[Rfam]
RNA sequence: GCCGCGCCUAGCCUUUGGCCGGGCGAAAACCGGGCACCCUUCACCCGGCGGGCGCGGCUCCUGAACCUUGGG
Numbered sequence: 001g002c003c004g005c006g007c008c009u010a011g012c013c014u015u016u017g018g019c020c021g022g023g024c025g026a027a028a029a030c031c032g033g034g035c036a037c038c039c040u041u042c043a044c045c046c047g048g049c050g051g052g053c054g055c056g057g058c059u060c061c062u063g064a065a066c067c068u069u070g071g072g
Base pairs, nucleotide, nucleotide: 001058002057003056004055005054006053007052008051011024012023013022014021030048031047032046033045034044039072040071041070043068
The record is a 72-nucleotide RNA from Methylomagnum ishizawai, which matches "int-alpA RNA" in Rfam. The source organism's lineage runs through Bacteria, Pseudomonadati, Pseudomonadota, Gammaproteobacteria and Methylomagnum. The family's RNA type in Rfam is small RNA. Pairs were carried over by alignment from the consensus structure, which is taken from published work.